[Rfam]
RNA sequence: UGCUGUCGGAUAAUCGGAUCCGACAAAGAGCCAAUUGGGGCUAGUCAC
Number, nucleotide and partner (000 for none) at each position: 001u000002g000003c000004u025005g024006u023007c022008g021009g020010a019011u018012a000013a000014u000015c000016g000017g000018a011019u010020c009021c008022g007023a006024c005025a004026a000027a000028g000029a042030g041031c040032c039033a000034a000035u000036u000037g000038g000039g032040g031041c030042u029043a000044g000045u000046c000047a000048c000
Rfam assigns this 48-nucleotide RNA sequence to the family "gut-2 RNA". The family's consensus secondary structure is taken from published work.